Annotation: mir-395 microRNA precursor family: an 86-nucleotide sequence from Chenopodium quinoa. A search with the family's covariance model found it, with a score of 68 bits. Taxonomically the source falls in Chenopodium (Eukaryota, Viridiplantae, Pentapetalae, Amaranthaceae).
RNA sequence: GUGUUCCCUAGAGUUCCUCUGAGCACUUCAUUAGGUAAAAUUUCCUUUAUUCCUACUGAAGCGUUUGGGGGAACUCCCGGGUUCAU
Number, nucleotide and partner (000 for none) at each position: 001g000002u000003g000004u000005u000006c081007c080008c079009u000010a000011g076012a075013g074014u073015u072016c071017c070018u069019c068020u067021g000022a066023g065024c063025a000026c061027u060028u059029c058030a057031u000032u055033a054034g053035g052036u000037a000038a000039a000040a000041u000042u000043u000044c000045c000046u000047u000048u000049a000050u000051u000052c035053c034054u033055a032056c000057u030058g029059a028060a027061g026062c000063g024064u000065u023066u022067g020068g019069g018070g017071g016072a015073a014074c013075u012076c011077c000078c000079g008080g007081g006082u000083u000084c000085a000086u000
Annotation: mir-395 was identified in both Arabidopsis thaliana and Oryza sativa computationally and was later experimentally verified. mir-395 is thought to target mRNAs coding for ATP sulphurylases.